[Rfam]
RNA sequence: AGGAGGAGCAACCCUAGUGGCGGCGGCGAGGUCUGGAGCCCUGGAGUCAGCCCCCGCAGUAACUAAGGAGCUCUCCGUCUGCUGGGCCUGGAGGCUCCGGGGCGGG
Numbered sequence: 001a002g003g004a005g006g007a008g009c010a011a012c013c014c015u016a017g018u019g020g021c022g023g024c025g026g027c028g029a030g031g032u033c034u035g036g037a038g039c040c041c042u043g044g045a046g047u048c049a050g051c052c053c054c055c056g057c058a059g060u061a062a063c064u065a066a067g068g069a070g071c072u073c074u075c076c077g078u079c080u081g082c083u084g085g086g087c088c089u090g091g092a093g094g095c096u097c098c099g100g101g102g103c104g105g106g
Stems, first nucleotide, its partner, number of pairs: 002098004009090002012086003019079005025074002029072002032069003037064001041059003